Shown here is a 93-nucleotide RNA from Microvirga tunisiensis, a member of the family "Repression of heat shock gene expression (ROSE) element". From the family's description: This family represents a 5' UTR cis-regulatory element found in heat shock mRNAs and is known as the ROSE (repression of heat shock gene expression) element. The ROSE element is a negative regulator of heat shock gene expression. The organism belongs to Microvirga, within Bacteria. It scores 55 bits against the family's covariance model. On this family, see Balsiger et al., J Bacteriol 2004: "Replicon-specific regulation of small heat shock genes in Agrobacterium tumefaciens". The family's consensus secondary structure is taken from published work.
[Rfam]
RNA sequence: GCCAAGGCUCUUGACGAGCUUGGCGGAUCGGGCGCCGGUGGUGUCCGGCGCUCUUGUGGUUACGUUGCUCUCGGGAGGAUGUAGCUAUGAGAA
Dot-bracket structure: ((((((.((.......)))))))).......(((((((......))))))).((((((.(((((((.(((....)))))))))).))))))..